[Rfam]
RNA sequence: CAACGUCUUCAGGGCGGGGUGCGAUUCCCCACCGGCGGUAGGUGAAAAGGCGGCGCUAGCCGCACGGACACGAGCCCGCGAGCGCCUUCGCCACCCGGUGAAGGGUCAGCAGAUCCGGUCAGAUGCCGGAGCCGACGGUUGGAAGCUGGUGGCAGCUUCCAGAAAGUCCGGAUGAGAGAAGACGGUA
Numbered sequence: 001c002a003a004c005g006u007c008u009u010c011a012g013g014g015c016g017g018g019g020u021g022c023g024a025u026u027c028c029c030c031a032c033c034g035g036c037g038g039u040a041g042g043u044g045a046a047a048a049g050g051c052g053g054c055g056c057u058a059g060c061c062g063c064a065c066g067g068a069c070a071c072g073a074g075c076c077c078g079c080g081a082g083c084g085c086c087u088u089c090g091c092c093a094c095c096c097g098g099u100g101a102a103g104g105g106u107c108a109g110c111a112g113a114u115c116c117g118g119u120c121a122g123a124u125g126c127c128g129g130a131g132c133c134g135a136c137g138g139u140u141g142g143a144a145g146c147u148g149g150u151g152g153c154a155g156c157u158u159c160c161a162g163a164a165a166g167u168c169c170g171g172a173u174g175a176g177a178g179a180a181g182a183c184g185g186u187a
Base pairs, nucleotide, nucleotide: 004184005183006182007181008180009179010178017029018028019027033134034133035079036078037077038076074132075131082110083109114130115129116128117127118126136170137169138168

A member of the RNA family "FMN riboswitch aptamer (RFN element)" from Dyella soli, 187 nucleotides long. A search with the family's covariance model found it, with a score of 88 bits. NCBI's taxonomy places the organism under Bacteria, Pseudomonadota, Lysobacterales, Rhodanobacteraceae, Dyella.